RNA sequence: UGUUCAGAUUUCCUCGGCAGUUAACUGCAGCCGGAUUUCUAAUUCCUCGGCAGUUAACUGCCGAGGGG
Numbered sequence: 001u002g003u004u005c006a007g008a009u010u011u012c013c014u015c016g017g018c019a020g021u022u023a024a025c026u027g028c029a030g031c032c033g034g035a036u037u038u039c040u041a042a043u044u045c046c047u048c049g050g051c052a053g054u055u056a057a058c059u060g061c062c063g064a065g066g067g068g
Base pairs, nucleotide, nucleotide: 011067012066014064015063016062017061018060019059020058021057022056023055024054025053026052027051028050
A member of the RNA family "MIR2629 microRNA precursor family" from Medicago truncatula, 68 nucleotides long.
Pairs were carried over by alignment from the consensus structure, which was predicted with RNAalifold.